[Rfam]
Record summary: Shown here is a 141-nucleotide sequence from Thermoactinomyces daqus, a member of the family "FMN riboswitch aptamer (RFN element)". It scores 119 bits against the family's covariance model. The RFN element is a highly conserved domain that is found frequently in the 5'-untranslated regions of prokaryotic mRNAs that encode for flavin mononucleotide (FMN) biosynthesis and transport proteins.

RNA sequence: UGCAUCCUUCGGGGCAGGGUGAAAUUCCCGACCGGCGGUGAUGAUGGCGAUUCGUUGCGAUCUCAGCCCGUGACCCGCUUUUGCGGUGGAUUCGGUGAAACUCCGAAGCCGACAGUAUAGUCUGGAUGGGAGAAGGAUGAA
Numbered sequence: 001u002g003c004a005u006c007c008u009u010c011g012g013g014g015c016a017g018g019g020u021g022a023a024a025u026u027c028c029c030g031a032c033c034g035g036c037g038g039u040g041a042u043g044a045u046g047g048c049g050a051u052u053c054g055u056u057g058c059g060a061u062c063u064c065a066g067c068c069c070g071u072g073a074c075c076c077g078c079u080u081u082u083g084c085g086g087u088g089g090a091u092u093c094g095g096u097g098a099a100a101c102u103c104c105g106a107a108g109c110c111g112a113c114a115g116u117a118u119a120g121u122c123u124g125g126a127u128g129g130g131a132g133a134a135g136g137a138u139g140a141a
Stems, first nucleotide, its partner, number of pairs: 003139008017029003031121002033111002035071004066109002075086002091107005113124003
Dot-bracket structure: ..((((((((......(((.......))).[[((((((...........................[[))))...((........))....(((((.......)))))]])).(((....]]))).......))))))))..